[Rfam]
Nucleotides: 133
Stems, first nucleotide, its partner, number of pairs: 003131009014120003018116004023111004028106006
Number, partner (000 for none) and nucleotide at each position: 001000u002000a003131u004130u005129a006128a007127a008126a009125a010124u011123u012000a013000a014120a015119u016118c017000c018116a019115u020114u021113u022000g023111u024110a025109u026108u027000a028106u029105u030104a031103a032102a033101a034000a035000c036000u037000a038000g039000c040000a041000u042000g043000g044000c045000u046000g047000a048000u049000a050000a051000a052000a053000u054000a055000a056000c057000u058000a059000g060000a061000c062000a063000a064000u065000u066000a067000c068000a069000c070000a071000u072000g073000u074000a075000c076000c077000u078000c079000a080000u081000g082000u083000u084000a085000a086000c087000g088000u089000a090000u091000a092000g093000g094000g095000a096000c097000c098000a099000g100000c101033u102032u103031u104030u105029a106028a107000u108026a109025g110024u111023a112000g113021a114020a115019a116018u117000u118016g119015a120014u121000g122000a123011a124010a125009u126008u127007u128006u129005u130004a131003a132000c133000a

About this RNA: This 133-nucleotide sequence from Gossypium stocksii belongs to the Rfam family "MIR7502 microRNA precursor family". Rfam links the family to the GO terms miRNA-mediated post-transcriptional gene silencing and RISC complex. Lineage of the source: Eukaryota > Gunneridae > Malvaceae > Malvoideae > Gossypium. The base pairs follow the family's consensus structure, which was predicted with RNAalifold.